[Rfam]
RNA sequence: UGCAUUUGUCGGGCAUGGAGUCUGAAGAACUCGCAGAUUGUGUGUUGUCUAUCAGCUUCUUCCCUUGUUAAUCCCACGGGAUUGGAGUUAAAUAACAGCACUACAUUU
Number, nucleotide and partner (000 for none) at each position: 001u000002g000003c000004a000005u000006u000007u000008g000009u000010c000011g000012g000013g000014c000015a000016u000017g000018g000019a000020g000021u000022c000023u000024g000025a000026a000027g000028a000029a000030c000031u000032c000033g000034c000035a000036g000037a000038u000039u000040g000041u000042g101043u100044g099045u098046u097047g096048u000049c000050u000051a000052u000053c000054a089055g088056c087057u086058u085059c084060u000061u081062c080063c079064c078065u000066u000067g000068u000069u000070a000071a000072u000073c000074c000075c000076a000077c000078g064079g063080g062081a061082u000083u000084g059085g058086a057087g056088u055089u054090a000091a000092a000093u000094a000095a000096c047097a046098g045099c044100a043101c042102u000103a000104c000105a000106u000107u000108u000
This 108-nucleotide RNA sequence from Punica granatum belongs to the Rfam family "Small nucleolar RNA snoR97". The source organism's lineage runs through Eukaryota, Streptophyta, Streptophytina, rosids and Punica. The family's consensus secondary structure was predicted with WAR. Rfam links the family to the GO terms RNA processing and nucleolus. It scores 92 bits against the family's covariance model.